[Rfam]
A member of the RNA family "Purine riboswitch aptamer" from Paenibacillus lentus, 101 nucleotides long. The family's consensus secondary structure is taken from published work.
RNA sequence: CAAUAAUCUUCAUUAACUUCUCGUAUAUGUGCAGGAAUUGGCCUGCAUGUCUCUACCAGAUCACCGGAAAUGAUCGGACUACGGGGAGAAUUCAAAUUGUU
Numbered sequence: 001c002a003a004u005a006a007u008c009u010u011c012a013u014u015a016a017c018u019u020c021u022c023g024u025a026u027a028u029g030u031g032c033a034g035g036a037a038u039u040g041g042c043c044u045g046c047a048u049g050u051c052u053c054u055a056c057c058a059g060a061u062c063a064c065c066g067g068a069a070a071u072g073a074u075c076g077g078a079c080u081a082c083g084g085g086g087a088g089a090a091u092u093c094a095a096a097u098u099g100u101u
Stems, first nucleotide, its partner, number of pairs: 018087008029048007057077001059075005

A search with the family's covariance model found it, with a score of 79 bits. Its family is annotated with purine nucleobase biosynthetic process in the Gene Ontology. The organism belongs to Paenibacillus, within Bacteria.